[Rfam]
RNA: SAM riboswitch aptamer (S box leader)
Organism: Pelagirhabdus alkalitolerans
RNA sequence: AUCUUAUCCAGAGAGGUGGAGGGACUGGCCCUUUGAAGCCUCGGCAACAGACUUAUUAAGUACUGUGCCAAUUCCAGCAAGCUAAAAGCUUGAAAAGAUAAGAA
Numbered sequence: 001a002u003c004u005u006a007u008c009c010a011g012a013g014a015g016g017u018g019g020a021g022g023g024a025c026u027g028g029c030c031c032u033u034u035g036a037a038g039c040c041u042c043g044g045c046a047a048c049a050g051a052c053u054u055a056u057u058a059a060g061u062a063c064u065g066u067g068c069c070a071a072u073u074c075c076a077g078c079a080a081g082c083u084a085a086a087a088g089c090u091u092g093a094a095a096a097g098a099u100a101a102g103a104a
Stems, first nucleotide, its partner, number of pairs: 002103007013042005021031003025077004043069004048065002051061004073096001078092006